[Rfam]
A member of the RNA family "c-di-AMP riboswitch aptamer (ydaO/yuaA leader)" from Streptomyces sp. RKND-216, 187 nucleotides long.
Taxonomically the source falls in Streptomyces (Bacteria, Bacillati, Actinomycetota, Streptomycetaceae).
This family represents a conserved RNA structure found upstream of the ydaO and yuaA genes in Bacillus subtilis and related genes in other bacteria. The ydaO/yuaA element is thought to act as a genetic 'off' switch for the ydaO and yuaA genes in its native state.

RNA sequence: AGCAGGAGCCACCCGUGACCCACGAACGGCAGGAGUGGGGGACCCAAGGUAAGUGCCGCGCCGGUACGUCACGCACCGGACGGCUUGGGGUGAAGUCGCAGCGAGUGCCGCUCAUGCGCUCGCACAGGCGACCGGGCAACUCCAGCCCGAACCCGACAGCUCACCUCGCAGGCGUAGGAGAGGACCA
Numbered sequence: 001a002g003c004a005g006g007a008g009c010c011a012c013c014c015g016u017g018a019c020c021c022a023c024g025a026a027c028g029g030c031a032g033g034a035g036u037g038g039g040g041g042a043c044c045c046a047a048g049g050u051a052a053g054u055g056c057c058g059c060g061c062c063g064g065u066a067c068g069u070c071a072c073g074c075a076c077c078g079g080a081c082g083g084c085u086u087g088g089g090g091u092g093a094a095g096u097c098g099c100a101g102c103g104a105g106u107g108c109c110g111c112u113c114a115u116g117c118g119c120u121c122g123c124a125c126a127g128g129c130g131a132c133c134g135g136g137c138a139a140c141u142c143c144a145g146c147c148c149g150a151a152c153c154c155g156a157c158a159g160c161u162c163a164c165c166u167c168g169c170a171g172g173c174g175u176a177g178g179a180g181a182g183g184a185c186c187a
Base pairs, nucleotide, nucleotide: 035169036168037167038166039165040164045087046086047085048084088154089153090152096131097130098129099128134148135147136146137145